[Rfam]
RNA: Ribosomal protein L20 leader
Organism: Oceanobacillus piezotolerans
RNA sequence: UUAGACAAGUAGAAGCACCCGCUUCUCACCUGUUCGACACCUAAGAGGUAGUUGACUGGUUCCAAACUUUUUAUGACUGUUAAUGGAGACGUGUGGGUGCAUGAUGUACCGACACUUUUUAUUUUGU
Numbered sequence: 001u002u003a004g005a006c007a008a009g010u011a012g013a014a015g016c017a018c019c020c021g022c023u024u025c026u027c028a029c030c031u032g033u034u035c036g037a038c039a040c041c042u043a044a045g046a047g048g049u050a051g052u053u054g055a056c057u058g059g060u061u062c063c064a065a066a067c068u069u070u071u072u073a074u075g076a077c078u079g080u081u082a083a084u085g086g087a088g089a090c091g092u093g094u095g096g097g098u099g100c101a102u103g104a105u106g107u108a109c110c111g112a113c114a115c116u117u118u119u120u121a122u123u124u125u126g127u
Stems, first nucleotide, its partner, number of pairs: 011026006028060003036053003039049002092114003096110006